[Rfam]
A member of the RNA family "mir-27 microRNA precursor family" from Alligator mississippiensis, 79 nucleotides long.
Nucleotides: 079
Base pairs, nucleotide, nucleotide: 011069012068013067014066015065016064017063018062019061020060026056027055028054029053030052031051032050
Number, partner (000 for none) and nucleotide at each position: 001000c002000c003000a004000g005000g006000g007000c008000a009000c010000a011069g012068g013067g014066c015065u016064u017063a018062g019061c020060u021000c022000a023000c024000c025000u026056g027055u028054g029053a030052a031051c032050a033000g034000a035000g036000u037000u038000a039000g040000c041000g042000u043000u044000g045000c046000a047000u048000c049000a050032u051031g052030u053029u054028c055027a056026c057000a058000g059000u060020g061019g062018c063017u064016a065015a066014g067013u068012u069011c070000c071000g072000c073000c074000u075000c076000c077000u078000g079000g

Description:
On this family, see Yao et al., J Virol 2008: "MicroRNA profile of Marek's disease virus-transformed T-cell line MSB-1: predominance of virus-encoded microRNAs". Gene Ontology terms of the family: miRNA-mediated post-transcriptional gene silencing and RISC complex.